[Rfam]
RNA sequence: UCGUACAGCUAACUGCUAUUUUUUAAUAGAGGAAAAUCCGCUCUAGCACUUCCUGUGAUGGAAGUAGUGUUUAUGCUAGAUCUAAUAAAUCUAGGCAAUGAAGAUUGACGACUAGUGCAACAGAGACGAGCUUAUUAAAUUAAGUAUGCAACGAUGUAAACUCCAUAAGCUAGAAACCCAAAUUUCGGUAGGGGAAUUAGGCGAGGGGAAUCAGAACCUAAACUUGAAAACAAAUUAUUUGUUUAGAUAAAUAGUUAGCGCCAGCAAUGGUACAGAAAGCGGUUUAUAGUA
Numbered sequence: 001u002c003g004u005a006c007a008g009c010u011a012a013c014u015g016c017u018a019u020u021u022u023u024u025a026a027u028a029g030a031g032g033a034a035a036a037u038c039c040g041c042u043c044u045a046g047c048a049c050u051u052c053c054u055g056u057g058a059u060g061g062a063a064g065u066a067g068u069g070u071u072u073a074u075g076c077u078a079g080a081u082c083u084a085a086u087a088a089a090u091c092u093a094g095g096c097a098a099u100g101a102a103g104a105u106u107g108a109c110g111a112c113u114a115g116u117g118c119a120a121c122a123g124a125g126a127c128g129a130g131c132u133u134a135u136u137a138a139a140u141u142a143a144g145u146a147u148g149c150a151a152c153g154a155u156g157u158a159a160a161c162u163c164c165a166u167a168a169g170c171u172a173g174a175a176a177c178c179c180a181a182a183u184u185u186c187g188g189u190a191g192g193g194g195a196a197u198u199a200g201g202c203g204a205g206g207g208g209a210a211u212c213a214g215a216a217c218c219u220a221a222a223c224u225u226g227a228a229a230a231c232a233a234a235u236u237a238u239u240u241g242u243u244u245a246g247a248u249a250a251a252u253a254g255u256u257a258g259c260g261c262c263a264g265c266a267a268u269g270g271u272a273c274a275g276a277a278a279g280c281g282g283u284u285u286a287u288a289g290u291a
Base pairs, nucleotide, nucleotide: 004291005290006289007287008259009258010257011256012255013254014253016029017028018027019026020025034285035284036283038282039281040280041279042278043173044172045171046170047169048065049064050063051062052061053060071168072167073166074165075164076094077093078092079091080090081089095109096107097106098105099104110163111162115161116160117157118156119155130145131144132143133142134141177193178192179191197227198226199225200224201223228244229243230242231241232240233239261270262269263268